[Rfam]
RNA: Streptococcus sRNA SpF59 (ldcC RNA)
RNA sequence: UGCCCACCCAUUACGGGUUAAGCCCAUACGGACAGGCGGGGCAGCUGCCGA
Numbered sequence: 001u002g003c004c005c006a007c008c009c010a011u012u013a014c015g016g017g018u019u020a021a022g023c024c025c026a027u028a029c030g031g032a033c034a035g036g037c038g039g040g041g042c043a044g045c046u047g048c049c050g051a
Base pairs, nucleotide, nucleotide: 001043002042003041004040005039006018007017008016009015